[Rfam]
RNA: drum RNA
RNA sequence: GACUGAUGAAGCGCAAGCUGUGCUAAGAAGCAGUUUGUGUGGAGGUCUACAAAGGUUUUAGGUUUACCAUGACUUAGCUAAGGUGUGUUCCGAAAGAAAACCUAAAGG
Numbered sequence: 001g002a003c004u005g006a007u008g009a010a011g012c013g014c015a016a017g018c019u020g021u022g023c024u025a026a027g028a029a030g031c032a033g034u035u036u037g038u039g040u041g042g043a044g045g046u047c048u049a050c051a052a053a054g055g056u057u058u059u060a061g062g063u064u065u066a067c068c069a070u071g072a073c074u075u076a077g078c079u080a081a082g083g084u085g086u087g088u089u090c091c092g093a094a095a096g097a098a099a100a101c102c103u104a105a106a107g108g
Base pairs, nucleotide, nucleotide: 001047002046003045004044011040012039013038014037015036016035017034018033019032020031021030023077024076025075026074060103061102062101082091083090